[Rfam]
RNA: Clostridiales-1 RNA
RNA sequence: UGAUACCCUAAGGUGCAUAAGGUACUGAAAAUAGUGUUUACACGUAUUUUCAGUACUUUGGCACCUGCAAAAACAUGAGAAUGAAGCCACUAUAGUGGCGAAAAUUCGAAUGUUUUUAGGAUUUCGGGAGUGCCUUGCACGAAGAAAUCCGCCGGGUAUCA
Number, nucleotide and partner (000 for none) at each position: 001u161002g160003a159004u158005a157006c156007c155008c000009u000010a000011a000012g065013g064014u063015g062016c000017a000018u000019a059020a058021g057022g056023u055024a054025c053026u052027g051028a050029a049030a048031a047032u000033a000034g043035u042036g041037u000038u000039u000040a000041c036042a035043c034044g000045u000046a000047u031048u030049u029050u028051c027052a026053g025054u024055a023056c022057u021058u020059u019060g000061g000062c015063a014064c013065c012066u000067g000068c000069a117070a116071a115072a114073a113074c112075a111076u110077g000078a000079g107080a106081a105082u104083g000084a000085a000086g099087c098088c097089a096090c095091u000092a000093u000094a000095g090096u089097g088098g087099c086100g000101a000102a000103a000104a082105u081106u080107c079108g000109a000110a076111u075112g074113u073114u072115u071116u070117u069118a000119g150120g149121a148122u147123u146124u145125c144126g000127g000128g000129a000130g140131u139132g138133c137134c000135u000136u000137g133138c132139a131140c130141g000142a000143a000144g125145a124146a123147a122148u121149c120150c119151g000152c000153c000154g000155g007156g006157u005158a004159u003160c002161a001